[Rfam]
RNA: permuted transfer-messenger RNA
RNA sequence: GGCGAUAAAGUGCAGCGUCCAAUAGGCGCAGCGGACCCGGGGGCGGUACCCGGCGGCUCCACCACCGGAGCUGAGCCGCUCGGCGGCACGCUUCAUGCGUGUCGACGAAGGCUCAGCCUCGAUGAAGGGGCCGAACUAGGAUCGACGUGUGUUGAAAUACGCUGUUUUCGCUCGGGCUGAGUAACCCGUUAAAGGCUCAAAACCACAAGUGCCAACGAUAACGAAGCACUCGCGAUCGCAGCGUAA
Numbered sequence: 001g002g003c004g005a006u007a008a009a010g011u012g013c014a015g016c017g018u019c020c021a022a023u024a025g026g027c028g029c030a031g032c033g034g035a036c037c038c039g040g041g042g043g044c045g046g047u048a049c050c051c052g053g054c055g056g057c058u059c060c061a062c063c064a065c066c067g068g069a070g071c072u073g074a075g076c077c078g079c080u081c082g083g084c085g086g087c088a089c090g091c092u093u094c095a096u097g098c099g100u101g102u103c104g105a106c107g108a109a110g111g112c113u114c115a116g117c118c119u120c121g122a123u124g125a126a127g128g129g130g131c132c133g134a135a136c137u138a139g140g141a142u143c144g145a146c147g148u149g150u151g152u153u154g155a156a157a158u159a160c161g162c163u164g165u166u167u168u169c170g171c172u173c174g175g176g177c178u179g180a181g182u183a184a185c186c187c188g189u190u191a192a193a194g195g196c197u198c199a200a201a202a203c204c205a206c207a208a209g210u211g212c213c214a215a216c217g218a219u220a221a222c223g224a225a226g227c228a229c230u231c232g233c234g235a236u237c238g239c240a241g242c243g244u245a246a
Base pairs, nucleotide, nucleotide: 001172002171003170004169005168015162016161017160018159027151028150029149031148032147033146037053038052039051040050041049054133055132056131057130058129059128060127173188174187175186176185
Dot-bracket structure: (((((.........((((........(((.(((...(((((.......)))))(((((((..................................................................)))))))............)))))).......)))).....)))))((((........))))..........................................................